[Rfam]
RNA sequence: AGCAUCUCCUUGGGGUGCCCGCUCGGGCUGAGAGGUCGUCUCGAUCAACCCAUCGAACCUGAUCCGGAUUAUGCCGGCGGAGGGAUGGCGAGUACACCGGCG
Numbered sequence: 001a002g003c004a005u006c007u008c009c010u011u012g013g014g015g016u017g018c019c020c021g022c023u024c025g026g027g028c029u030g031a032g033a034g035g036u037c038g039u040c041u042c043g044a045u046c047a048a049c050c051c052a053u054c055g056a057a058c059c060u061g062a063u064c065c066g067g068a069u070u071a072u073g074c075c076g077g078c079g080g081a082g083g084g085a086u087g088g089c090g091a092g093u094a095c096a097c098c099g100g101c102g
Base pairs, nucleotide, nucleotide: 006090008088009087011052012051013050014049017028018027019026020025035045036044037043038042058083059082060081064077065076066075067074

TPP riboswitch aptamer (THI element): a 102-nucleotide sequence from Microvirga tunisiensis.
It scores 73 bits against the family's covariance model.
Taxonomically the source falls in Microvirga (Bacteria, Pseudomonadati, Pseudomonadota, Alphaproteobacteria).